[Rfam]
RNA sequence: UGGCGGGGGAGUACUACAAGGGGUGGAGGCUGCGGUUCAAUCGGACGCAACGCCGAGAAUGUUACCGGGGGCGACAGCAGGAUGAAGGUCCGUCUGAAGGGCGUACCAGACACGCUGAGAGGUGGUGCAUGGCCACCAUCAGCUCGUGCCGUGAGGUGUCCACUUAAGUGUGGCAACGAGCGAGACCCGUGCCUCUAGUUGCGACCUAGAUUCUCCGGGAUCUAGGGCACUCUAGAGGGACUGCCGGCGAUAAGUCGGAGGAAGGAGCGGGCGAUGGUAGGUCUGUAUGCCCCGAAUCUCCCGGGCUACACGCGGCCUACAAUGGUCGGGACAACGGGACGCGACCCCGAAAGGGGAAGCUAAUCCCUUAAACCCGGCCCCAGUUCGGAUUGAGGGUUGAAACUCACCCUCAUGAAGCUGGAAUCCCUAGUAAUCGCGGGUCACCAUCCCGCGGUGAAUACGUCCCUACUCCUUGUACACACCGCCCGUCAAGCCACCCGAGUGGGGUCUAGAUGAGGCGAGGUCCUAUGGGCCUUGACGAAUCUGGGCUCUGUGAGGGGGGCUAAGUCGUAACAAGG
Numbered sequence: 001u002g003g004c005g006g007g008g009g010a011g012u013a014c015u016a017c018a019a020g021g022g023g024u025g026g027a028g029g030c031u032g033c034g035g036u037u038c039a040a041u042c043g044g045a046c047g048c049a050a051c052g053c054c055g056a057g058a059a060u061g062u063u064a065c066c067g068g069g070g071g072c073g074a075c076a077g078c079a080g081g082a083u084g085a086a087g088g089u090c091c092g093u094c095u096g097a098a099g100g101g102c103g104u105a106c107c108a109g110a111c112a113c114g115c116u117g118a119g120a121g122g123u124g125g126u127g128c129a130u131g132g133c134c135a136c137c138a139u140c141a142g143c144u145c146g147u148g149c150c151g152u153g154a155g156g157u158g159u160c161c162a163c164u165u166a167a168g169u170g171u172g173g174c175a176a177c178g179a180g181c182g183a184g185a186c187c188c189g190u191g192c193c194u195c196u197a198g199u200u201g202c203g204a205c206c207u208a209g210a211u212u213c214u215c216c217g218g219g220a221u222c223u224a225g226g227g228c229a230c231u232c233u234a235g236a237g238g239g240a241c242u243g244c245c246g247g248c249g250a251u252a253a254g255u256c257g258g259a260g261g262a263a264g265g266a267g268c269g270g271g272c273g274a275u276g277g278u279a280g281g282u283c284u285g286u287a288u289g290c291c292c293c294g295a296a297u298c299u300c301c302c303g304g305g306c307u308a309c310a311c312g313c314g315g316c317c318u319a320c321a322a323u324g325g326u327c328g329g330g331a332c333a334a335c336g337g338g339a340c341g342c343g344a345c346c347c348c349g350a351a352a353g354g355g356g357a358a359g360c361u362a363a364u365c366c367c368u369u370a371a372a373c374c375c376g377g378c379c380c381c382a383g384u385u386c387g388g389a390u391u392g393a394g395g396g397u398u399g400a401a402a403c404u405c406a407c408c409c410u411c412a413u414g415a416a417g418c419u420g421g422a423a424u425c426c427c428u429a430g431u432a433a434u435c436g437c438g439g440g441u442c443a444c445c446a447u448c449c450c451g452c453g454g455u456g457a458a459u460a461c462g463u464c465c466c467u468a469c470u471c472c473u474u475g476u477a478c479a480c481a482c483c484g485c486c487c488g489u490c491a492a493g494c495c496a497c498c499c500g501a502g503u504g505g506g507g508u509c510u511a512g513a514u515g516a517g518g519c520g521a522g523g524u525c526c527u528a529u530g531g532g533c534c535u536u537g538a539c540g541a542a543u544c545u546g547g548g549c550u551c552u553g554u555g556a557g558g559g560g561g562g563c564u565a566a567g568u569c570g571u572a573a574c575a576a577g578g
Base pairs, nucleotide, nucleotide: 001479002478003476004475005474007473008472009471010470011469012468013467016463017462020427021426022425023424024423025320027318028317029316030315031314032313033312034311035309036308041056042055043054044053065304066303067302068301069300070299071298075117076116077115078114080111087107088106089105091103092102093101121293122292124291125290126289127288130287131286132282133281134280135278136277137276138275142181143180144179145178146177147176148157149156150155160173161172162171163170187270188269189268190267192238193237194236195235196234197233198232202227206225207224208223209222210221211220212219241261242260244258245257246256247255248254324379325378326377327376328375329374330373336367337366338365341360342359345356346355347354348353386417391412392411393410394409395408396407397406433455434454435453436452437451438450439449440448482577484574487570488569490567492564493563494562495561497559498558499557502554503553504552505551506550507549508548509547510546511545512544513543514542517539519537520536521535522534523533524532525531526530
This 578-nucleotide part of an RNA from uncultured euryarchaeote Alv-FOS5 belongs to the Rfam family "Archaeal small subunit ribosomal RNA". The sequence is in the family's curated seed alignment. The family's consensus secondary structure is taken from published work.